The record is a 101-nucleotide sequence, which matches "Methylobacterium-1 RNA" in Rfam. The family's consensus secondary structure is taken from published work. It is one of the family's seed sequences.
RNA sequence: AAGACUAAAACGGUAGCAAAUAUUGUUAGUAAGACGGGGGAGAAAUAACCCCCAUAGAAUAUAAAAGGUAAUCACAUCUGCAUUAUAUUCUAACCGAAGGU
Numbered sequence: 001a002a003g004a005c006u007a008a009a010a011c012g013g014u015a016g017c018a019a020a021u022a023u024u025g026u027u028a029g030u031a032a033g034a035c036g037g038g039g040g041a042g043a044a045a046u047a048a049c050c051c052c053c054a055u056a057g058a059a060u061a062u063a064a065a066a067g068g069u070a071a072u073c074a075c076a077u078c079u080g081c082a083u084u085a086u087a088u089u090c091u092a093a094c095c096g097a098a099g100g101u
Stems, first nucleotide, its partner, number of pairs: 004030005009024002036053005055092010068081003